RNA sequence: GGGGACGCACUGGUUUCGACGGGGUUGUAAAACCAGAAUUGCAGGUCGAGGCGCCGCUGGCCUCGUAAAAAGCGGCAACAAUGUAAUUGCAGAAAAUAACAAUUACGCACUAGCUGCUUAAUUAAGCAGCCCACCGAUGCGACGAUGUCUGAUAAUCGCAAAAGUGGACACUUUAUCAGGCUGAUUUUCCCUUUAGCUUUUGGGAGGGAAGAUGAGUAAAAACAAUCUAAAGCUGGCGUCAAGGCGUUUGUUUAGAGACAAACCUUGAGGCGAUGACCACUAAGUCUAGACUAAACCUGUAGACGUUCUGAGUGGAGCUUUCUCGGACGCGAGUUCGAUUCUCGCCGUCUCCACCA
Numbered sequence: 001g002g003g004g005a006c007g008c009a010c011u012g013g014u015u016u017c018g019a020c021g022g023g024g025u026u027g028u029a030a031a032a033c034c035a036g037a038a039u040u041g042c043a044g045g046u047c048g049a050g051g052c053g054c055c056g057c058u059g060g061c062c063u064c065g066u067a068a069a070a071a072g073c074g075g076c077a078a079c080a081a082u083g084u085a086a087u088u089g090c091a092g093a094a095a096a097u098a099a100c101a102a103u104u105a106c107g108c109a110c111u112a113g114c115u116g117c118u119u120a121a122u123u124a125a126g127c128a129g130c131c132c133a134c135c136g137a138u139g140c141g142a143c144g145a146u147g148u149c150u151g152a153u154a155a156u157c158g159c160a161a162a163a164g165u166g167g168a169c170a171c172u173u174u175a176u177c178a179g180g181c182u183g184a185u186u187u188u189c190c191c192u193u194u195a196g197c198u199u200u201u202g203g204g205a206g207g208g209a210a211g212a213u214g215a216g217u218a219a220a221a222a223c224a225a226u227c228u229a230a231a232g233c234u235g236g237c238g239u240c241a242a243g244g245c246g247u248u249u250g251u252u253u254a255g256a257g258a259c260a261a262a263c264c265u266u267g268a269g270g271c272g273a274u275g276a277c278c279a280c281u282a283a284g285u286c287u288a289g290a291c292u293a294a295a296c297c298u299g300u301a302g303a304c305g306u307u308c309u310g311a312g313u314g315g316a317g318c319u320u321u322c323u324c325g326g327a328c329g330c331g332a333g334u335u336c337g338a339u340u341c342u343c344g345c346c347g348u349c350u351c352c353a354c355c356a
Base pairs, nucleotide, nucleotide: 001352002351003350004349005348006347007346020325021324022323023322024321027318028317031313034310035309036308037307038306039305042299043298044297045296046295047065048064049063050062051061053076054075055074056073057072058071113130114129115128116127117126131167132166133165134164138160139159140158141157147181148180149179150178151177152176153175184213185212186211187210188209189208200232201231236271237270239268240267241266242265243264244263246259247258248257250291251290252289253288255285329345330344331343332342333341
Shown here is a 356-nucleotide RNA from Desulfovibrio litoralis, a member of the family "transfer-messenger RNA".
For this family Rfam cites "Phylogenetic analysis of tmRNA secondary structure" (Williams and Bartel, RNA, 1996).
NCBI's taxonomy places the organism under Bacteria, Pseudomonadati, Desulfovibrionaceae, Desulfovibrio, Desulfovibrio litoralis.
Rfam classes the family as a non-coding RNA gene.